[Rfam]
RNA sequence: UGGCGCCCAACGUGGGGCUCAAGAACGGGGGAAUUCGUGAGGGAUGCCAUUUGUGAAGUGUGCGAAAGUUAAGAUAGAGGAUCAUCAAUGUGGGAACCUGCUGCGUUUUCCAGGCCUCGGUAAGUGAACAGUGAUUAUGGGUCAGGAAAUAAGCCAGCAUGCAAUAUUUGUUGAAAGUUUAAGUAAGGCUUUAAAGGCACAAGGAGUAAAGGUUAAAAUUAAGGAUUUGUGUCACUAUUUGGAAUAUAUUAAACAACUUU
Numbered sequence: 001u002g003g004c005g006c007c008c009a010a011c012g013u014g015g016g017g018c019u020c021a022a023g024a025a026c027g028g029g030g031g032a033a034u035u036c037g038u039g040a041g042g043g044a045u046g047c048c049a050u051u052u053g054u055g056a057a058g059u060g061u062g063c064g065a066a067a068g069u070u071a072a073g074a075u076a077g078a079g080g081a082u083c084a085u086c087a088a089u090g091u092g093g094g095a096a097c098c099u100g101c102u103g104c105g106u107u108u109u110c111c112a113g114g115c116c117u118c119g120g121u122a123a124g125u126g127a128a129c130a131g132u133g134a135u136u137a138u139g140g141g142u143c144a145g146g147a148a149a150u151a152a153g154c155c156a157g158c159a160u161g162c163a164a165u166a167u168u169u170g171u172u173g174a175a176a177g178u179u180u181a182a183g184u185a186a187g188g189c190u191u192u193a194a195a196g197g198c199a200c201a202a203g204g205a206g207u208a209a210a211g212g213u214u215a216a217a218a219u220u221a222a223g224g225a226u227u228u229g230u231g232u233c234a235c236u237a238u239u240u241g242g243a244a245u246a247u248a249u250u251a252a253a254c255a256a257c258u259u260u
Stems, first nucleotide, its partner, number of pairs: 006031003012026002036046003079118002082114002088109001089105005125144003129141001132139002150193003153189003200242001202240003206236001210228005
A member of the RNA family "Mason-Pfizer monkey virus packaging signal" from Octodon degus, 260 nucleotides long. Pairs were carried over by alignment from the consensus structure, which was predicted with PFOLD. This family represents a group of sequences that are related to the Mason-Pfizer monkey virus (MPMV) packaging signal.